This 194-nucleotide RNA sequence from Miscanthus lutarioriparius belongs to the Rfam family "MIR6217 microRNA precursor family". Lineage of the source: Eukaryota > Streptophytina > Tracheophyta > Poales > Miscanthus. Rfam links the family to the GO terms miRNA-mediated post-transcriptional gene silencing and RISC complex.
[Rfam]
RNA sequence: UGGCUAUAAAAUAAUUUAUUUUAUAACCACUUUGAGUUACGAUAAUUACUCAAGAUUAUAGUAACUCCUUACUAAAUGAUUUACUAUAACGUUAUGGUAAAUAUCCCCAUAUGUUAUAGUAACCCAACUAUCGUAAAUAUGUAUUAGCAUUAUCGUAAAUGGAGAUGGCUACAGAAUAACUUAUUUUAUAGCUG
Numbered sequence: 001u002g003g004c005u006a007u008a009a010a011a012u013a014a015u016u017u018a019u020u021u022u023a024u025a026a027c028c029a030c031u032u033u034g035a036g037u038u039a040c041g042a043u044a045a046u047u048a049c050u051c052a053a054g055a056u057u058a059u060a061g062u063a064a065c066u067c068c069u070u071a072c073u074a075a076a077u078g079a080u081u082u083a084c085u086a087u088a089a090c091g092u093u094a095u096g097g098u099a100a101a102u103a104u105c106c107c108c109a110u111a112u113g114u115u116a117u118a119g120u121a122a123c124c125c126a127a128c129u130a131u132c133g134u135a136a137a138u139a140u141g142u143a144u145u146a147g148c149a150u151u152a153u154c155g156u157a158a159a160u161g162g163a164g165a166u167g168g169c170u171a172c173a174g175a176a177u178a179a180c181u182u183a184u185u186u187u188a189u190a191g192c193u194g
Stems, first nucleotide, its partner, number of pairs: 001194014016179007024171002027168003031164003037158010054148001056146001058144003061140003069136004076131003080127002082121011096106002